RNA sequence: UGUGAGAAUGAUGAGUUGCACCUUCUGUUGAAGCAGCAGUGCAGUGGCACAGCAGCUUCAAUCAGAUCAGUGUUCUGAUGACAGACCAGUGUGCACAGGGGCCAUCUGACUCAUA
Numbered sequence: 001u002g003u004g005a006g007a008a009u010g011a012u013g014a015g016u017u018g019c020a021c022c023u024u025c026u027g028u029u030g031a032a033g034c035a036g037c038a039g040u041g042c043a044g045u046g047g048c049a050c051a052g053c054a055g056c057u058u059c060a061a062u063c064a065g066a067u068c069a070g071u072g073u074u075c076u077g078a079u080g081a082c083a084g085a086c087c088a089g090u091g092u093g094c095a096c097a098g099g100g101g102c103c104a105u106c107u108g109a110c111u112c113a114u115a
Base pairs, nucleotide, nucleotide: 004114006112007111024066025065026064027063028061029060030059031058033056034055039050040049041048042047
RNA: Small nucleolar RNA SNORD67